[Rfam]
RNA sequence: UUUAAAAACCGGCAAAUCUAGAGAAAUCUAGAGACGCAAAGCUAAAGGGGCUAAGGUUUAAUCAAACUAUGCCAGCCAGUUGCCAAA
Numbered sequence: 001u002u003u004a005a006a007a008a009c010c011g012g013c014a015a016a017u018c019u020a021g022a023g024a025a026a027u028c029u030a031g032a033g034a035c036g037c038a039a040a041g042c043u044a045a046a047g048g049g050g051c052u053a054a055g056g057u058u059u060a061a062u063c064a065a066a067c068u069a070u071g072c073c074a075g076c077c078a079g080u081u082g083c084c085a086a087a
Stems, first nucleotide, its partner, number of pairs: 012037002017032006040081004047077002049073003056067004
Shown here is an 87-nucleotide RNA sequence from Terrisporobacter othiniensis, a member of the family "c-di-GMP-I riboswitch aptamer". The literature on the family includes a 2008 paper in Science by Sudarsan et al., "Riboswitches in Eubacteria Sense the Second Messenger Cyclic Di-GMP". From the family's description: GEMM was predicted in a large-scale screen for bacterial structured RNA regulatory elements. The family's consensus secondary structure is taken from published work. Its family is annotated with cyclic-di-GMP binding in the Gene Ontology.